[Rfam]
BsrG: a 275-nucleotide RNA.

RNA sequence: UAAAAAAACCCCCCCCCCCCCCCCCCCCGGGGGGGGGUUUUUUUUUAAAAAAAAAAAAAAGUUUUUUUACCCCCCCCGGGUUUUUUUUUACCCCCCCCCCCCCCCGGGUUUAAAAAAAAAAAAAAAAAAACGGGGGGGUUUUAAAAACCCGGGGGGGGGGGGGUUUAAAAAAAAAAAAAAAACCCCCCCCCCGUUAAAAAAACGGGUUUUUUUUAACCCGGGGGGGUUAAAAAAAAACCGGUUUUUUUACCCCCCCCGGUUUUUUAAAACCGGGG
Numbered sequence: 001u002a003a004a005a006a007a008a009c010c011c012c013c014c015c016c017c018c019c020c021c022c023c024c025c026c027c028c029g030g031g032g033g034g035g036g037g038u039u040u041u042u043u044u045u046u047a048a049a050a051a052a053a054a055a056a057a058a059a060a061g062u063u064u065u066u067u068u069a070c071c072c073c074c075c076c077c078g079g080g081u082u083u084u085u086u087u088u089u090a091c092c093c094c095c096c097c098c099c100c101c102c103c104c105c106g107g108g109u110u111u112a113a114a115a116a117a118a119a120a121a122a123a124a125a126a127a128a129a130a131c132g133g134g135g136g137g138g139u140u141u142u143a144a145a146a147a148c149c150c151g152g153g154g155g156g157g158g159g160g161g162g163g164u165u166u167a168a169a170a171a172a173a174a175a176a177a178a179a180a181a182a183c184c185c186c187c188c189c190c191c192c193g194u195u196a197a198a199a200a201a202a203c204g205g206g207u208u209u210u211u212u213u214u215a216a217c218c219c220g221g222g223g224g225g226g227u228u229a230a231a232a233a234a235a236a237a238c239c240g241g242u243u244u245u246u247u248u249a250c251c252c253c254c255c256c257c258g259g260u261u262u263u264u265u266a267a268a269a270c271c272g273g274g275g
Stems, first nucleotide, its partner, number of pairs: 001249005007243003021225006028193008037183004043056004070161006078093003102154010204209001226238003254275009
Rfam describes the family as follows. bsrE, bsrG and bsrH pair through intermolecular interactions with antisense sRNAs. They form type I toxin/antitoxin system that includes an mRNA encoding for a short, toxic peptide (bsrE, bsrG and bsrH) and an antitoxin that is comprised of an antisense RNA. bsrG encodes a 39-amino-acid toxin, and the 180 nucleotide antisense sRNA called SR4 acts as the antitoxin (they overlap by 123 nucleotides). SR4 interaction with the 3'UTR of bsrG RNA promotes bsrG degradation and inhibits its translation. BsrG interferes with cell envelope biosynthesis, causes membrane invaginations and delocalisation of the cell wall synthesis and initiates autolysis. bsrE RNA encodes 30 amino-acid toxin peptide. Its antitoxin gene, SR5 overlaps by 112 nucleotides at the 3' end of bsrE. SR5 also overlaps bsrG from nucleotide 163 to 52 (Rfam overlap check). The antitoxin SR5 promotes bsrE degradation but unlike SR4 it does not directly inhibits toxin mRNA translation.